[Rfam]
RNA sequence: AUUCCCUAUGAUGGUUUUAACCAUGCUAAUACUGAUCUCUUAUGAAUGUGUCGAAAGUUAAGUGUCUGAAGGAAUC
Numbered sequence: 001a002u003u004c005c006c007u008a009u010g011a012u013g014g015u016u017u018u019a020a021c022c023a024u025g026c027u028a029a030u031a032c033u034g035a036u037c038u039c040u041u042a043u044g045a046a047u048g049u050g051u052c053g054a055a056a057g058u059u060a061a062g063u064g065u066c067u068g069a070a071g072g073a074a075u076c
Stems, first nucleotide, its partner, number of pairs: 001075005
RNA: Small nucleolar RNA snoR53Y
Organism: Arabis alpina